[Rfam]
RNA sequence: AGAAGAAUAACAGGGCAAUUUCUUCUUUGGCAGAAUUAUAUCACAUAAUGUAAGACAUAUGAUUAAUGUCUCUGCCAAAGAAGAAUUGCCCUGCCAUUCCACU
Numbered sequence: 001a002g003a004a005g006a007a008u009a010a011c012a013g014g015g016c017a018a019u020u021u022c023u024u025c026u027u028u029g030g031c032a033g034a035a036u037u038a039u040a041u042c043a044c045a046u047a048a049u050g051u052a053a054g055a056c057a058u059a060u061g062a063u064u065a066a067u068g069u070c071u072c073u074g075c076c077a078a079a080g081a082a083g084a085a086u087u088g089c090c091c092u093g094c095c096a097u098u099c100c101a102c103u
Stems, first nucleotide, its partner, number of pairs: 005099004011093009022083004028077007
This 103-nucleotide RNA from Beta vulgaris belongs to the Rfam family "mir-399 microRNA precursor family".
For this family Rfam cites "Computational Identification of Plant MicroRNAs and Their Targets, Including a Stress-Induced miRNA" (Jones-Rhoades and Bartel, Mol Cell, 2004).
Lineage of the source: Eukaryota > Euphyllophyta > eudicotyledons > Pentapetalae > Beta vulgaris.
Pairs were carried over by alignment from the consensus structure, which was predicted with PFOLD.
From the family's description: mir-399 was identified in both Arabidopsis thaliana and Oryza sativa computationally and was later experimentally verified. mir-399 is thought to target mRNAs coding for a phosphatase transporter. The mature sequence is excised from the 3' arm of the hairpin.